[Rfam]
RNA sequence: GGGUGUUCGCGUUCCGUUGGAAUCGGACAGGUUAUCACGUUGGUCGGGCCGCCAGCG
Number, nucleotide and partner (000 for none) at each position: 001g000002g000003g000004u000005g028006u027007u026008c025009g024010c000011g000012u021013u000014c000015c000016g000017u000018u000019g000020g000021a012022a000023u000024c009025g008026g007027a006028c005029a000030g000031g000032u000033u000034a000035u000036c000037a000038c057039g056040u055041u054042g053043g052044u051045c000046g000047g000048g000049c000050c000051g044052c043053c042054a041055g040056c039057g038
RNA: nhaA-I RNA